[Rfam]
cspA thermoregulator: a 445-nucleotide RNA from Aliivibrio fischeri. The organism belongs to Aliivibrio fischeri, within Bacteria. The family's consensus secondary structure is taken from published work. The literature on the family includes a 2010 paper in Mol Cell by Giuliodori et al., "The cspA mRNA is a thermosensor that modulates translation of the cold-shock protein CspA". Rfam links the family to the GO terms response to temperature stimulus and regulation of translation. Rfam 15.1 lists 2,094 matches to the family in 1,285 species.
RNA sequence: CUCGGCCUGUAAACAGACCUAUUUAUCUGUAAUAUUAUGCUUUUGAAACCUUCGUUAUACUGCUUUACCAGUUAUGCUUGAAGCUUUUUAUACAUAUGUUUUACCUCAAAUAAAUAAUUCUUUAUGGCUACAACUUCGCAUUAUGCGAAUUAUUUAAUUUAAAAAAAUUAGGAUUUAUUAUGUCUAAAUCAACUGGUAUCGUUAAGUGGUUCAACGAAGAGAAAGGUUUCGGUUUCAUUACUCAAGAUAACGGCGGCGCUGACGUAUUCGUUCACUUCCGUGCUAUCGCAACUGAAGGUUUCAAAACUCUGAAAGAAGGCCAAGCGGUAACUUUCACUGUUGAACAAGGUCAAAAAGGCCCACAAGCUGCAGACGUUACUCCAGCUUAAUUCGAAUUUUUCGAAUAGAAUUUUUAAAAAUGCUGACUUCGGUCAGCAUUUUUUUU
Number, nucleotide and partner (000 for none) at each position: 001c000002u000003c000004g019005g018006c000007c016008u015009g014010u000011a000012a000013a000014c009015a008016g007017a000018c005019c004020u000021a000022u000023u000024u000025a000026u244027c000028u000029g241030u240031a239032a000033u000034a000035u000036u000037a000038u000039g235040c000041u000042u000043u000044u232045g000046a000047a000048a000049c226050c225051u224052u223053c000054g000055u000056u000057a000058u221059a000060c219061u218062g000063c216064u000065u214066u000067a210068c209069c208070a000071g000072u000073u000074a000075u173076g000077c172078u171079u170080g000081a000082a000083g000084c000085u000086u164087u163088u162089u161090a160091u000092a158093c000094a000095u126096a125097u124098g000099u000100u000101u000102u000103a000104c000105c000106u000107c000108a000109a000110a000111u000112a000113a000114a000115u000116a000117a000118u000119u000120c000121u000122u000123u000124a097125u096126g095127g000128c000129u000130a000131c000132a000133a000134c000135u000136u000137c000138g146139c145140a144141u000142u000143a000144u140145g139146c138147g000148a000149a000150u000151u000152a000153u000154u000155u000156a000157a000158u092159u000160u090161a089162a088163a087164a086165a000166a000167a000168u000169u000170a079171g078172g077173a075174u000175u196176u195177a194178u000179u192180a000181u000182g000183u000184c000185u000186a000187a000188a000189u000190c000191a000192a179193c000194u177195g176196g175197u000198a000199u000200c000201g000202u000203u000204a000205a000206g000207u000208g069209g068210u067211u000212c000213a000214a065215c000216g063217a000218a061219g060220a000221g058222a000223a052224a051225g050226g049227u000228u000229u000230c000231g000232g044233u000234u000235u039236c000237a000238u000239u031240a030241c029242u000243c000244a026245a000246g000247a000248u342249a341250a340251c339252g338253g337254c000255g000256g000257c000258g000259c000260u000261g269262a268263c000264g000265u000266a000267u000268u262269c261270g000271u000272u330273c000274a328275c327276u326277u000278c000279c324280g000281u322282g321283c319284u318285a000286u313287c000288g000289c000290a000291a308292c000293u000294g307295a000296a000297g000298g000299u000300u000301u000302c000303a000304a000305a000306a000307c294308u291309c000310u000311g000312a000313a286314a000315g000316a000317a000318g284319g283320c000321c282322a281323a000324g279325c000326g276327g275328u274329a000330a272331c000332u000333u000334u000335c000336a000337c253338u252339g251340u250341u249342g248343a000344a000345c000346a000347a000348g360349g359350u000351c357352a000353a000354a000355a000356a000357g351358g000359c349360c348361c000362a000363c000364a387365a386366g385367c384368u383369g382370c000371a380372g000373a000374c000375g000376u000377u000378a000379c000380u371381c000382c369383a368384g367385c366386u365387u364388a000389a000390u409391u408392c407393g000394a405395a000396u403397u402398u000399u000400u000401c000402g397403a396404a000405u394406a000407g392408a391409a390410u000411u000412u000413u000414u000415a442416a441417a440418a439419a438420u437421g436422c435423u434424g433425a432426c431427u000428u000429c000430g000431g426432u425433c424434a423435g422436c421437a420438u419439u418440u417441u416442u415443u000444u000445u000